[Rfam]
RNA sequence: AUCGGAUUUGGCGAUAUGGUGCCCAAGACCUACCUCGGCAUGAUCGUUGGAUCGGUCUGCGCGUUGAUGGGCGUACUCACCAUCGCACUUCCAGUUCCUGUCAUCGUCUCAAAU
Numbered sequence: 001a002u003c004g005g006a007u008u009u010g011g012c013g014a015u016a017u018g019g020u021g022c023c024c025a026a027g028a029c030c031u032a033c034c035u036c037g038g039c040a041u042g043a044u045c046g047u048u049g050g051a052u053c054g055g056u057c058u059g060c061g062c063g064u065u066g067a068u069g070g071g072c073g074u075a076c077u078c079a080c081c082a083u084c085g086c087a088c089u090u091c092c093a094g095u096u097c098c099u100g101u102c103a104u105c106g107u108c109u110c111a112a113a114u
Stems, first nucleotide, its partner, number of pairs: 001114002005110001009106003013102004018097002021095002037077002040074001050062001
The family of this 114-nucleotide RNA sequence from Plectus sambesii is "Potassium channel RNA editing signal".
The family's RNA type in Rfam is cis-regulatory element.
The source organism's lineage runs through Eukaryota, Bilateria, Ecdysozoa, Plectina and Plectus.
The base pairs follow the family's consensus structure, which is taken from published work.
This family represents a group of sequences related to the human potassium channel Kv1.1 hairpin element which directs the efficient modification of an adenosine to inosine by an adenosine deaminase acting on RNA (ADAR).